[Rfam]
RNA sequence: UCUUAGUUUGGCGUUUAUGCCUUGCUAGGGCCACACGCAUCUUGCUUAUGCCUGAAACCAAGAAAAUCCUGAAGGAUUUUGGAGAAAGGUAUCAAAUGCAAAAGCAACAUUAAGUACUAAUGAGGGAACCGAAAGUGAGCUGAAGGAAAUAUGAAGCUUUGGUGAUUUUACUUUAGAGUAGGAUGCUACAUAGU
Numbered sequence: 001u002c003u004u005a006g007u008u009u010g011g012c013g014u015u016u017a018u019g020c021c022u023u024g025c026u027a028g029g030g031c032c033a034c035a036c037g038c039a040u041c042u043u044g045c046u047u048a049u050g051c052c053u054g055a056a057a058c059c060a061a062g063a064a065a066a067u068c069c070u071g072a073a074g075g076a077u078u079u080u081g082g083a084g085a086a087a088g089g090u091a092u093c094a095a096a097u098g099c100a101a102a103a104g105c106a107a108c109a110u111u112a113a114g115u116a117c118u119a120a121u122g123a124g125g126g127a128a129c130c131g132a133a134a135g136u137g138a139g140c141u142g143a144a145g146g147a148a149a150u151a152u153g154a155a156g157c158u159u160u161g162g163u164g165a166u167u168u169u170a171c172u173u174u175a176g177a178g179u180a181g182g183a184u185g186c187u188a189c190a191u192a193g194u
Stems, first nucleotide, its partner, number of pairs: 001030007010021003037186010066172001071167002101160005108153003117145002
Rfam assigns this 194-nucleotide RNA sequence to the family "RT-16 RNA".